[Rfam]
Shown here is a 102-nucleotide RNA sequence from Hibiscus syriacus, a member of the family "mir-393 microRNA precursor family". On this family, see Kruszka et al., J Plant Physiol 2012: "Role of microRNAs and other sRNAs of plants in their changing environments". Lineage of the source: Eukaryota > Embryophyta > rosids > malvids > Hibiscus.

RNA sequence: ACAGGAUGCAUCCAAAGGGAUCGCAUUGAUCCUUUAUUUUCCUUUUCCCCUCGAGAAAAAAUAAAUGAUUUCGGAUCAUGCUAUCCCUUUGGAUUCUUUCUU
Numbered sequence: 001a002c003a004g005g006a007u008g009c010a011u012c013c014a015a016a017g018g019g020a021u022c023g024c025a026u027u028g029a030u031c032c033u034u035u036a037u038u039u040u041c042c043u044u045u046u047c048c049c050c051u052c053g054a055g056a057a058a059a060a061a062u063a064a065a066u067g068a069u070u071u072c073g074g075a076u077c078a079u080g081c082u083a084u085c086c087c088u089u090u091g092g093a094u095u096c097u098u099u100c101u102u
Stems, first nucleotide, its partner, number of pairs: 003101004008096001010094012023081004028077005036070001